[Rfam]
RNA sequence: UCAAUAGCACCGCUGGGGCAGGAGCGGGGGAACCACGUGGGACCCGGUCGACCGGACCCGUCCUUGGGGUGAAGCCACGCGUGUGGCCGGGCAUCUUCCCGCCCGAACCCGACAGCUCACCUCGCAGGCGUGGAGGAAGCCCAU
Numbered sequence: 001u002c003a004a005u006a007g008c009a010c011c012g013c014u015g016g017g018g019c020a021g022g023a024g025c026g027g028g029g030g031a032a033c034c035a036c037g038u039g040g041g042a043c044c045c046g047g048u049c050g051a052c053c054g055g056a057c058c059c060g061u062c063c064u065u066g067g068g069g070u071g072a073a074g075c076c077a078c079g080c081g082u083g084u085g086g087c088c089g090g091g092c093a094u095c096u097u098c099c100c101g102c103c104c105g106a107a108c109c110c111g112a113c114a115g116c117u118c119a120c121c122u123c124g125c126a127g128g129c130g131u132g133g134a135g136g137a138a139g140c141c142c143a144u
Stems, first nucleotide, its partner, number of pairs: 001022002024125006034066002067110003075086004089104004

A member of the RNA family "c-di-AMP riboswitch aptamer (ydaO/yuaA leader)" from Intrasporangium chromatireducens, 144 nucleotides long. Pairs were carried over by alignment from the consensus structure.